SAM riboswitch aptamer (S box leader): a 103-nucleotide sequence from Leptobacterium flavescens. It scores 81 bits against the family's covariance model. The SAM riboswitch is found upstream of a number of genes which code for proteins involved in methionine or cysteine biosynthesis in Gram-positive bacteria. The SAM riboswitch acts at the level of transcription termination control. The predicted structure consists of a complex stem-loop region followed by a single stem loop terminator region.
RNA sequence: UUGUUAUUAAGAAAGGCAGAGGGAAUAGACCCGUCGAAGCCUUAGCAACCCUUUAUUCUAUAAAGAAGGUGCUACAUUCUACCAUUUUUUGGAAAGAUAACAC
Numbered sequence: 001u002u003g004u005u006a007u008u009a010a011g012a013a014a015g016g017c018a019g020a021g022g023g024a025a026u027a028g029a030c031c032c033g034u035c036g037a038a039g040c041c042u043u044a045g046c047a048a049c050c051c052u053u054u055a056u057u058c059u060a061u062a063a064a065g066a067a068g069g070u071g072c073u074a075c076a077u078u079c080u081a082c083c084a085u086u087u088u089u090u091g092g093a094a095a096g097a098u099a100a101c102a103c
Base pairs, nucleotide, nucleotide: 002102003101004100005099006098007097008096013043014042015041016040017039021032022031023030026081027080028079029078044073045072046071047070049069050068051065052064053063054062077095082092083091084090